[Rfam]
RNA sequence: CACUUUUCGUGUUCACGCCGGACCUUGAUUUAAAAGCAAUACAAUUAAGGCACGCGGUGAAUGCCAAGAGAG
Numbered sequence: 001c002a003c004u005u006u007u008c009g010u011g012u013u014c015a016c017g018c019c020g021g022a023c024c025u026u027g028a029u030u031u032a033a034a035a036g037c038a039a040u041a042c043a044a045u046u047a048a049g050g051c052a053c054g055c056g057g058u059g060a061a062u063g064c065c066a067a068g069a070g071a072g
Stems, first nucleotide, its partner, number of pairs: 003070004009064008019054002023050008
This 72-nucleotide RNA from Oncorhynchus mykiss belongs to the Rfam family "mir-124 microRNA precursor family".
Rfam 15.1 lists 2,215 matches to the family in 905 species.